[Rfam]
RNA sequence: UCCCACUGUCCUUCAUUCCACCGGAUUCUGUUUCCCAUCCUGCAGAUUCCCAGUGGGAUGAAGUGCAGUGGGGC
Numbered sequence: 001u002c003c004c005a006c007u008g009u010c011c012u013u014c015a016u017u018c019c020a021c022c023g024g025a026u027u028c029u030g031u032u033u034c035c036c037a038u039c040c041u042g043c044a045g046a047u048u049c050c051c052a053g054u055g056g057g058a059u060g061a062a063g064u065g066c067a068g069u070g071g072g073g074c
Stems, first nucleotide, its partner, number of pairs: 011063006019055003023050003028045003
Dot-bracket structure: ..........((((((..(((.(((..(((............)))..)))..)))..))))))...........
RNA: mir-205 microRNA precursor family
Organism: Myripristis murdjan